[Rfam]
RNA sequence: AUCUGGAGAGAGGCGCGACCGUGCGCCCGCCGAAGGGGACGCCCGAUCAACGCCGCACGGCGUGACGGGCCAAGCUCUCAGGCACCGUGACAGAU
Number, nucleotide and partner (000 for none) at each position: 001a095002u094003c093004u092005g091006g000007a000008g000009a000010g000011a000012g027013g026014c025015g024016c000017g000018a000019c000020c000021g000022u000023g000024c015025g014026c013027c012028c000029g083030c082031c081032g079033a078034a000035g000036g077037g076038g075039a000040c000041g000042c000043c069044c000045g000046a000047u000048c000049a000050a000051c000052g000053c000054c000055g000056c000057a000058c000059g000060g000061c000062g000063u000064g000065a000066c000067g000068g000069g043070c000071c000072a000073a000074g000075c038076u037077c036078u033079c032080a000081g031082g030083c029084a000085c000086c000087g000088u000089g000090a000091c005092a004093g003094a002095u001

Record summary: Shown here is a 95-nucleotide RNA sequence from Acidisphaera rubrifaciens, a member of the family "Glycine riboswitch aptamer". Taxonomically the source falls in Acidisphaera rubrifaciens (Bacteria, Pseudomonadota, Alphaproteobacteria, Acetobacteraceae). The match comes from Rfam's covariance-model search (43 bits). Pairs were carried over by alignment from the consensus structure.